Shown here is a 121-nucleotide RNA sequence from Morina longifolia, a member of the family "Plastid-psbA-1 3UTR RNA". The family is grouped with related families in Rfam's "Plastid-psbA 3UTR RNA clan". Plastid psbA-1 is a non-coding RNA (ncRNA) present in plastids. It was identified in inverted repeat sequences in the 3 prime untranslate region (3UTR) of photosystem II quinone-binding protein (psbA). Rfam's curators put it in the seed alignment. The organism belongs to Morina, within Eukaryota. A reference for the family is Richter et al. (2023), "Retrograde signaling in plants: A critical review focusing on the GUN pathway and beyond", Plant Commun. The family's consensus secondary structure was predicted with LocARNA.

[Rfam]
RNA sequence: UUGAAGCUCCAUCUACAAAUGGAUAAGACCCGUCUUUAGUGUAUACGAGUUUAAAAAAUAAAUAAAAAAGGAGCAAUAAUCCCUUUCUUGUUCUAGAAAGAGGGCGCUAUUGCUCCUUUUU
Numbered sequence: 001u002u003g004a005a006g007c008u009c010c011a012u013c014u015a016c017a018a019a020u021g022g023a024u025a026a027g028a029c030c031c032g033u034c035u036u037u038a039g040u041g042u043a044u045a046c047g048a049g050u051u052u053a054a055a056a057a058a059u060a061a062a063u064a065a066a067a068a069a070g071g072a073g074c075a076a077u078a079a080u081c082c083c084u085u086u087c088u089u090g091u092u093c094u095a096g097a098a099a100g101a102g103g104g105c106g107c108u109a110u111u112g113c114u115c116c117u118u119u120u121u
Stems, first nucleotide, its partner, number of pairs: 008023005067119012082104002085102005